[Rfam]
RNA sequence: AAGCAAAGUCUACAAAUCUCAAACCACUUUUGUACCUCUUACCGGUUUCAACCAAUCUCUGCCAAAAUGUCUCCCUGCUCCUGCAACUGCUGCUCUGGCAACUGCGCCAGCUGCUCUUGCUCCUCCUGCAGCGUGAGUCUCC
Number, nucleotide and partner (000 for none) at each position: 001a000002a000003g000004c000005a000006a000007a000008g000009u000010c000011u000012a000013c000014a000015a000016a000017u000018c000019u000020c000021a000022a000023a000024c000025c000026a000027c000028u000029u000030u000031u000032g000033u000034a000035c000036c000037u000038c000039u000040u000041a000042c000043c000044g000045g000046u000047u000048u000049c000050a000051a000052c000053c000054a000055a000056u000057c000058u000059c000060u000061g000062c000063c000064a000065a000066a000067a000068u000069g000070u000071c000072u000073c000074c000075c000076u100077g099078c098079u097080c000081c000082u000083g093084c092085a091086a000087c000088u000089g000090c000091u085092g084093c083094u000095c000096u000097g079098g078099c077100a076101a000102c000103u000104g129105c128106g127107c000108c000109a000110g000111c000112u000113g120114c119115u000116c000117u000118u000119g114120c113121u000122c000123c000124u000125c000126c000127u106128g105129c104130a000131g000132c000133g000134u000135g000136a000137g000138u000139c000140u000141c000142c000
Shown here is a 142-nucleotide RNA from Aspergillus sclerotioniger, a member of the family "A. fumigatus sRNA Afu_254".
A reference for the family is Jochl et al. (2008), "Small ncRNA transcriptome analysis from Aspergillus fumigatus suggests a novel mechanism for regulation of protein synthesis", Nucleic Acids Res.
The organism belongs to Aspergillus sclerotioniger, within Eukaryota.
The match comes from Rfam's covariance-model search (84 bits).
The family has 6 seed sequences and 185 matches in Rfam 15.1.